This 76-nucleotide RNA from Albula glossodonta belongs to the Rfam family "mir-30 microRNA precursor family". Pairs were carried over by alignment from the consensus structure, which was predicted with PFOLD. Its family is annotated with RISC complex and gene silencing by miRNA in the Gene Ontology. Taxonomically the source falls in Albula (Eukaryota, Opisthokonta, Vertebrata, Albulinae). Rfam 15.1 lists 3,879 matches to the family in 647 species. This family consists of the mammalian microRNA (miRNA) precursor mir-30a. Animal miRNAs are transcribed as ~70nt precursors and subsequently processed by the Dicer enzyme to give a ~22nt product.
RNA sequence: UUAGUUAAUGUAAACAUCCUACACUCAGCUGUAACUUGACUGGACAGGCUGGGUGAAGGGUGUUUACUUUGACUGG
Numbered sequence: 001u002u003a004g005u006u007a008a009u010g011u012a013a014a015c016a017u018c019c020u021a022c023a024c025u026c027a028g029c030u031g032u033a034a035c036u037u038g039a040c041u042g043g044a045c046a047g048g049c050u051g052g053g054u055g056a057a058g059g060g061u062g063u064u065u066a067c068u069u070u071g072a073c074u075g076g
Stems, first nucleotide, its partner, number of pairs: 002075005008069001010067011022055009